[Rfam]
RNA sequence: GCCUACCAGAACGGUCGUACGGAUACGGAAAACUAAUCGUUUAGCAAUAUCAACUAAUUAUUAGGUCGACAAUGUAUCCCGUUCUUAUGCGAGAAGAAAGACUUAUUAUGGUAGUUAGUGUUGAUGGAGACAUUAGCACGGGAG
Numbered sequence: 001g002c003c004u005a006c007c008a009g010a011a012c013g014g015u016c017g018u019a020c021g022g023a024u025a026c027g028g029a030a031a032a033c034u035a036a037u038c039g040u041u042u043a044g045c046a047a048u049a050u051c052a053a054c055u056a057a058u059u060a061u062u063a064g065g066u067c068g069a070c071a072a073u074g075u076a077u078c079c080c081g082u083u084c085u086u087a088u089g090c091g092a093g094a095a096g097a098a099a100g101a102c103u104u105a106u107u108a109u110g111g112u113a114g115u116u117a118g119u120g121u122u123g124a125u126g127g128a129g130a131c132a133u134u135a136g137c138a139c140g141g142g143a144g
Stems, first nucleotide, its partner, number of pairs: 003114006013103004021079006082095004118139003122135005